[Rfam]
RNA sequence: AUUGCGGCUGUCUCUAAUUCGCUUGGUGCAGGUCGGGACUAAUUCGCCGGCGGCAAUCACGUCGGCGGUGAUUAUUCUACGAAGCUUAGAUGUACGAAGUUAUCAACAAUGUUCCUUUGCGGCGAAAUUUGGGUCCCGCCUUGCAUCAACUGAAUUGGAGACUGCUGUGAAU
Number, nucleotide and partner (000 for none) at each position: 001a000002u000003u000004g000005c000006g000007g000008c000009u000010g000011u000012c000013u159014c158015u000016a000017a155018u154019u153020c152021g000022c000023u149024u148025g147026g146027u145028g144029c143030a142031g141032g140033u000034c138035g137036g136037g135038a134039c132040u131041a130042a129043u000044u000045c000046g000047c000048c000049g000050g000051c000052g000053g000054c000055a000056a000057u000058c000059a000060c000061g000062u000063c000064g000065g000066c000067g000068g000069u000070g000071a000072u000073u000074a000075u000076u000077c000078u000079a000080c000081g000082a000083a000084g000085c000086u000087u000088a000089g000090a000091u000092g000093u000094a000095c000096g000097a000098a000099g000100u000101u000102a000103u000104c000105a000106a000107c000108a000109a000110u000111g000112u000113u000114c000115c000116u000117u000118u000119g000120c000121g000122g000123c000124g000125a000126a000127a000128u000129u042130u041131g040132g039133g000134u038135c037136c036137c035138g034139c000140c032141u031142u030143g029144c028145a027146u026147c025148a024149a023150c000151u000152g020153a019154a018155u017156u000157g000158g014159a013160g000161a000162c000163u000164g000165c000166u000167g000168u000169g000170a000171a000172u000
Annotation: Rfam assigns this 172-nucleotide sequence from Nicotiana tabacum to the family "MIR168 microRNA precursor family". The match comes from Rfam's covariance-model search (87 bits). Lineage of the source: Eukaryota > Tracheophyta > eudicotyledons > Nicotianoideae > Nicotiana. Rfam links the family to the GO terms RISC complex and miRNA-mediated post-transcriptional gene silencing.